[Rfam]
RNA sequence: AGGUACUAGCAUAUCAAAGCUUUCUCCUUGCCCAUAUUCAUGAAUAUGGGCCACGGAGAGAGCUUUGAUUUACUGGUACCU
Numbered sequence: 001a002g003g004u005a006c007u008a009g010c011a012u013a014u015c016a017a018a019g020c021u022u023u024c025u026c027c028u029u030g031c032c033c034a035u036a037u038u039c040a041u042g043a044a045u046a047u048g049g050g051c052c053a054c055g056g057a058g059a060g061a062g063c064u065u066u067g068a069u070u071u072a073c074u075g076g077u078a079c080c081u
Base pairs, nucleotide, nucleotide: 001081002080003079004078006076008074009073013069014068015067016066017065019063020062021061022060024058025057026056030051031050032049033048034047035046036045037044

The record is an 81-nucleotide sequence from Microcaecilia unicolor, which matches "mir-571 microRNA precursor family" in Rfam. Rfam links the family to the GO terms RISC complex and miRNA-mediated post-transcriptional gene silencing. A search with the family's covariance model found it, with a score of 45 bits. Pairs were carried over by alignment from the consensus structure, which was predicted with RNAalifold. The organism belongs to Microcaecilia, within Eukaryota.